[Rfam]
RNA sequence: AAUAACUUCAUAGUGUUUCCCCGUAUAUGUUGCGAAUAGGGCGCAGCGUUUCUACCAGGCACCUCAAAUGCCUGACUAUGGAGGUUCUUUGUGAAGUU
Numbered sequence: 001a002a003u004a005a006c007u008u009c010a011u012a013g014u015g016u017u018u019c020c021c022c023g024u025a026u027a028u029g030u031u032g033c034g035a036a037u038a039g040g041g042c043g044c045a046g047c048g049u050u051u052c053u054a055c056c057a058g059g060c061a062c063c064u065c066a067a068a069u070g071c072c073u074g075a076c077u078a079u080g081g082a083g084g085u086u087c088u089u090u091g092u093g094a095a096g097u098u
Stems, first nucleotide, its partner, number of pairs: 018084002021081005029047006056074006
Rfam assigns this 98-nucleotide RNA sequence from Bdellovibrio bacteriovorus to the family "Purine riboswitch aptamer". Gene Ontology term of the family: purine nucleobase biosynthetic process. A reference for the family is Mandal and Breaker (2004), "Adenine riboswitches and gene activation by disruption of a transcription terminator", Nat Struct Mol Biol.